[Rfam]
Nucleotides: 119
Stems, first nucleotide, its partner, number of pairs: 001015005016041006023034004045119002048093006054082002057079003061075004099116006
Number, partner (000 for none) and nucleotide at each position: 001015g002014a003013a004012g005011g006000u007000a008000g009000g010000c011005c012004c013003u014002u015001c016041g017040a018039a019038g020037c021036c022000g023034g024033u025032u026031u027000g028000u029000a030000g031026g032025a033024g034023c035000a036021g037020g038019c039018u040017u041016c042000a043000a044000a045119c046118a047000g048093c049092c050091a051090u052089a053088a054082g055081c056000u057079g058078c059077u060000u061075c062074a063073g064072u065000c066000c067000g068000a069000a070000a071000g072064g073063c074062u075061g076000c077059g078058g079057u080000g081055g082054u083000g084000a085000a086000c087000g088053u089052u090051a091050u092049g093048g094000u095000a096000a097000a098000a099116g100115c101114c102113g103112g104111g105000a106000u107000a108000c109000a110000u111104c112103u113102c114101g115100g116099c117000a118046u119045g

A member of the RNA family "Group II catalytic intron D1-D4-2" from Sporomusa silvacetica, 119 nucleotides long. Its family is annotated with Group II intron splicing in the Gene Ontology. Taxonomically the source falls in Sporomusa silvacetica (Bacteria, Bacillota, Negativicutes, Selenomonadales). From the family's description: Group II introns are found in rRNA, tRNA and mRNA of organelles in fungi, plants and protists, and also in mRNA in bacteria. The match comes from Rfam's covariance-model search (97 bits).